[Rfam]
RNA sequence: GACCCAAAUUUGAAGUAGAGUCGAAAAGUAGGAUCGGCUGACCCUACUAAACUACUGUACUUCAAGAUUGUGCCC
Numbered sequence: 001g002a003c004c005c006a007a008a009u010u011u012g013a014a015g016u017a018g019a020g021u022c023g024a025a026a027a028g029u030a031g032g033a034u035c036g037g038c039u040g041a042c043c044c045u046a047c048u049a050a051a052c053u054a055c056u057g058u059a060c061u062u063c064a065a066g067a068u069u070g071u072g073c074c075c
Base pairs, nucleotide, nucleotide: 001074003072005070006069007068009066011064012063013062014061015060016059017058019056020055021054023052027048028047029046030045032043034041035040
The family of this 75-nucleotide RNA from Haemonchus placei is "mir-5928 microRNA precursor family".
Lineage of the source: Eukaryota > Eumetazoa > Ecdysozoa > Trichostrongylidae > Haemonchus.
Pairs were carried over by alignment from the consensus structure, which was predicted with RNAalifold.
Rfam 15.1 lists 1,672 matches to the family in 12 species.